[Rfam]
RNA sequence: CGUAGGGUGAAAGUCCCGAGGCGGCAACAGGUCAAGGCCGCAUAGCUGGGGUGGCGCCGACAGGGGAGACCCCUGCGGUGAAGCCCACUGACAAAGCCCCGUUUCAGCGGGGUGAGCGAGUGCACGGGCCGUAACGGCG
Dot-bracket structure: ....................((((.............))))........((((((((((....((....))....)))))....)))))......((((((......))))))..(((...........))).......
The family of this 139-nucleotide RNA from Myxococcus xanthus is "Group II catalytic intron D1-D4-4". From the family's description: Group II introns are found in rRNA, tRNA and mRNA of organelles in fungi, plants and protists, and also in mRNA in bacteria. Rfam 15.1 lists 840 matches to the family in 506 species. Rfam links the family to the GO term Group II intron splicing. It is one of the family's seed sequences.